[Rfam]
RNA sequence: AAGGAUCUUCGGGGUAGGGUGAGAUUCCCAACCGGCGGUAUGGCUCAUGGAGCUAAGCCCGCGACUCUGUAUCCGGCAACAGGAUACGGACUGAUUUGGUGAGAUGCCAAAGCCGACGGUAAAGUCCGGAUGGAAGAAGAUCGAA
Numbered sequence: 001a002a003g004g005a006u007c008u009u010c011g012g013g014g015u016a017g018g019g020u021g022a023g024a025u026u027c028c029c030a031a032c033c034g035g036c037g038g039u040a041u042g043g044c045u046c047a048u049g050g051a052g053c054u055a056a057g058c059c060c061g062c063g064a065c066u067c068u069g070u071a072u073c074c075g076g077c078a079a080c081a082g083g084a085u086a087c088g089g090a091c092u093g094a095u096u097u098g099g100u101g102a103g104a105u106g107c108c109a110a111a112g113c114c115g116a117c118g119g120u121a122a123a124g125u126c127c128g129g130a131u132g133g134a135a136g137a138a139g140a141u142c143g144a145a
Base pairs, nucleotide, nucleotide: 004142005141006140007139008138009137010136017029018028019027031125032124033115034114035062036061037060038059057113058112066090067089068088069087095111096110097109098108099107117128118127119126
RNA: FMN riboswitch aptamer (RFN element)